[Rfam]
RNA sequence: UGCACCGUGAGGUGCAGGCGAGAAGAAGGGAUAGCGAAAUCGUAGCCUGACGAACAGAAACCUAAUACUAAGGCUUGCAUGGCGGAUAAGUGGGCUAAUAGUCACGAAGUCCAAAAGGCAAUCGUAACCCAUGCAGGUAAAUUAGGCAGGUAGACGAGGAAAGACUGAUGAC
Numbered sequence: 001u002g003c004a005c006c007g008u009g010a011g012g013u014g015c016a017g018g019c020g021a022g023a024a025g026a027a028g029g030g031a032u033a034g035c036g037a038a039a040u041c042g043u044a045g046c047c048u049g050a051c052g053a054a055c056a057g058a059a060a061c062c063u064a065a066u067a068c069u070a071a072g073g074c075u076u077g078c079a080u081g082g083c084g085g086a087u088a089a090g091u092g093g094g095c096u097a098a099u100a101g102u103c104a105c106g107a108a109g110u111c112c113a114a115a116a117g118g119c120a121a122u123c124g125u126a127a128c129c130c131a132u133g134c135a136g137g138u139a140a141a142u143u144a145g146g147c148a149g150g151u152a153g154a155c156g157a158g159g160a161a162a163g164a165c166u167g168a169u170g171a172c
Stems, first nucleotide, its partner, number of pairs: 001016006028172001031169002035163001040157004045151005061146006073138003077134006084112004090105004
RNA: Group II catalytic intron D1-D4-3